The record is a 151-nucleotide RNA sequence from Morus notabilis, which matches "Small nucleolar RNA snoR2/U65" in Rfam.
By type it is an H/ACA-box small nucleolar RNA.
On this family, see Shaw et al., J Cell Sci 1998: "Localization and processing from a polycistronic precursor of novel snoRNAs in maize".
It scores 140 bits against the family's covariance model.
The base pairs follow the family's consensus structure, which was predicted with WAR.
Rfam links the family to the GO terms RNA processing and nucleolus.
[Rfam]
RNA sequence: GGGCCAAUGCCACGUCGCCGGUAGCUCAGAGAGAGCGUUGACCGGCGAUGCUAUGAUUGGUCCAAGAGUGAUCCUCUGUUUCGCAUCUUGAUAGGAACCUGUGGAUCUUGAUUCCGGUUGGUCCACGGAGCCGUUUUGUGCGAUUACAUUU
Numbered sequence: 001g002g003g004c005c006a007a008u009g010c011c012a013c014g015u016c017g018c019c020g021g022u023a024g025c026u027c028a029g030a031g032a033g034a035g036c037g038u039u040g041a042c043c044g045g046c047g048a049u050g051c052u053a054u055g056a057u058u059g060g061u062c063c064a065a066g067a068g069u070g071a072u073c074c075u076c077u078g079u080u081u082c083g084c085a086u087c088u089u090g091a092u093a094g095g096a097a098c099c100u101g102u103g104g105a106u107c108u109u110g111a112u113u114c115c116g117g118u119u120g121g122u123c124c125a126c127g128g129a130g131c132c133g134u135u136u137u138g139u140g141c142g143a144u145u146a147c148a149u150u151u
Base pairs, nucleotide, nucleotide: 002062003061004060005059006058007057008056009054013050014049015048016047017046018045020043021042022041024036025035026034081143082142083141084140085139094132095131099128100127101126103124104123105122106121107120